[Rfam]
RNA sequence: CAGUGCAGUCUUCCAUAAAGUAGAAAGCACUACUAAACUCCUCAUGAUGCUGUAGUGUUUCCUACUUUAUGGAUGACUGUACUGU
Numbered sequence: 001c002a003g004u005g006c007a008g009u010c011u012u013c014c015a016u017a018a019a020g021u022a023g024a025a026a027g028c029a030c031u032a033c034u035a036a037a038c039u040c041c042u043c044a045u046g047a048u049g050c051u052g053u054a055g056u057g058u059u060u061c062c063u064a065c066u067u068u069a070u071g072g073a074u075g076a077c078u079g080u081a082c083u084g085u
Stems, first nucleotide, its partner, number of pairs: 014071010026059008

The family of this 85-nucleotide RNA sequence from Denticeps clupeoides is "mir-142 microRNA precursor family". Rfam links the family to the GO terms miRNA-mediated post-transcriptional gene silencing and RISC complex. The organism belongs to Denticeps, within Eukaryota. The literature on the family includes a 2008 paper in J Hered by Devor and Samollow, "In vitro and in silico annotation of conserved and nonconserved microRNAs in the genome of the marsupial Monodelphis domestica". It scores 102 bits against the family's covariance model.